[Rfam]
RNA sequence: UUGCACCUUGUAUCGAAUGUUAUGCCUCGUCCUGGUGGCAUGGCUAUUUUUCGAGGAUGCAGAAAAUAAUAGCUGUUGAAUCAGCAAGCGGCCAGACAACCGUUGGGAUAGAUCCACAGUUGAUUCAGAUUUAAUCUGUUUUCAGCUACUAAAUCUAUCCUACAAUC
Numbered sequence: 001u002u003g004c005a006c007c008u009u010g011u012a013u014c015g016a017a018u019g020u021u022a023u024g025c026c027u028c029g030u031c032c033u034g035g036u037g038g039c040a041u042g043g044c045u046a047u048u049u050u051u052c053g054a055g056g057a058u059g060c061a062g063a064a065a066a067u068a069a070u071a072g073c074u075g076u077u078g079a080a081u082c083a084g085c086a087a088g089c090g091g092c093c094a095g096a097c098a099a100c101c102g103u104u105g106g107g108a109u110a111g112a113u114c115c116a117c118a119g120u121u122g123a124u125u126c127a128g129a130u131u132u133a134a135u136c137u138g139u140u141u142u143c144a145g146c147u148a149c150u151a152a153a154u155c156u157a158u159c160c161u162a163c164a165a166u167c
Stems, first nucleotide, its partner, number of pairs: 002061004009053002015049003019044008105161008122142002126138003
This 167-nucleotide sequence from Brassica napus belongs to the Rfam family "small nucleolar RNA snoR143". A search with the family's covariance model found it, with a score of 106 bits. For this family Rfam cites "Mining small RNA sequencing data: a new approach to identify small nucleolar RNAs in Arabidopsis" (Chen and Wu, Nucleic Acids Res, 2009). Gene Ontology terms of the family: nucleolus and RNA processing. The family has 3 seed sequences and 660 matches in Rfam 15.1.